SAM riboswitch aptamer (S box leader): a 110-nucleotide RNA sequence from Bacillus sp. 7884-1. The organism belongs to Bacillus, within Bacteria.
RNA sequence: GUCUUAUCAAGAGUGGCAGAGGGAAAGGCCCUGUGAAGCCCGGCAACCUUCAAACAAAUGUUUGAAAAGGUGCUAAGUCCUUCAAAGUAUUUUACUUUGAGAGAUAAGUG
Numbered sequence: 001g002u003c004u005u006a007u008c009a010a011g012a013g014u015g016g017c018a019g020a021g022g023g024a025a026a027g028g029c030c031c032u033g034u035g036a037a038g039c040c041c042g043g044c045a046a047c048c049u050u051c052a053a054a055c056a057a058a059u060g061u062u063u064g065a066a067a068a069g070g071u072g073c074u075a076a077g078u079c080c081u082u083c084a085a086a087g088u089a090u091u092u093u094a095c096u097u098u099g100a101g102a103g104a105u106a107a108g109u110g
Base pairs, nucleotide, nucleotide: 003108004107005106006105007104008103013041015040016039017038021031022030023029025082026081027080028079042074043073044072045071047070048069049066050065051064052063078102083099084098085097086096087095088094
A search with the family's covariance model found it, with a score of 94 bits.
About the family: The SAM riboswitch is found upstream of a number of genes which code for proteins involved in methionine or cysteine biosynthesis in Gram-positive bacteria.